[Rfam]
RNA sequence: GAGUGACGCCGGGCCCCUCUGGCGGCGAGCCUGCUCGCCGUGAUGUCGGAGUCACUGU
Numbered sequence: 001g002a003g004u005g006a007c008g009c010c011g012g013g014c015c016c017c018u019c020u021g022g023c024g025g026c027g028a029g030c031c032u033g034c035u036c037g038c039c040g041u042g043a044u045g046u047c048g049g050a051g052u053c054a055c056u057g058u
Base pairs, nucleotide, nucleotide: 006052007051009049010048011047012046022041023040024039025038026037027036028035029034
The family of this 58-nucleotide RNA from Zestomonas carbonaria is "terC RNA". It scores 59 bits against the family's covariance model.